[Rfam]
RNA: Small nucleolar RNA SNORD35
Organism: Gambusia affinis
RNA sequence: UACAAAUGAUGCUUUUCUCACGAUGGUCUUCCAAGCCCCUAUGGGUUCUGACGACAAUGCCUAAUGGCAAAACUGAUGUAGAUUA
Numbered sequence: 001u002a003c004a005a006a007u008g009a010u011g012c013u014u015u016u017c018u019c020a021c022g023a024u025g026g027u028c029u030u031c032c033a034a035g036c037c038c039c040u041a042u043g044g045g046u047u048c049u050g051a052c053g054a055c056a057a058u059g060c061c062u063a064a065u066g067g068c069a070a071a072a073c074u075g076a077u078g079u080a081g082a083u084u085a
Base pairs, nucleotide, nucleotide: 001080002079003078004077